Shown here is a 127-nucleotide sequence from Myotis davidii, a member of the family "Small nucleolar RNA SNORA31". For this family Rfam cites "RNomics: an experimental approach that identifies 201 candidates for novel, small, non-messenger RNAs in mouse" (Huttenhofer et al., EMBO J, 2001).
RNA sequence: CUGCAUCCACUGAUAGACCUUGAACAACCUGUUGUUCUUGUGGUUUGCACUGGGAUGCGAAAGAAAAAUAUCCCUGCGCUUUCUGUCUGUCUUUGUGGCGGCCCAGAUUGAAUAAGGGACUACAUCU
Numbered sequence: 001c002u003g004c005a006u007c008c009a010c011u012g013a014u015a016g017a018c019c020u021u022g023a024a025c026a027a028c029c030u031g032u033u034g035u036u037c038u039u040g041u042g043g044u045u046u047g048c049a050c051u052g053g054g055a056u057g058c059g060a061a062a063g064a065a066a067a068a069u070a071u072c073c074c075u076g077c078g079c080u081u082u083c084u085g086u087c088u089g090u091c092u093u094u095g096u097g098g099c100g101g102c103c104c105a106g107a108u109u110g111a112a113u114a115a116g117g118g119a120c121u122a123c124a125u126c127u
Base pairs, nucleotide, nucleotide: 002059003058004057005056006055007054008053011049012048014047015046016045017044018043019042022037023036024035025034026033027032071119072118073117074116075115079110082107083106084105085104087101088100089099090098091097
It is annotated as an H/ACA-box small nucleolar RNA. The base pairs follow the family's consensus structure, which was predicted with RNAalifold.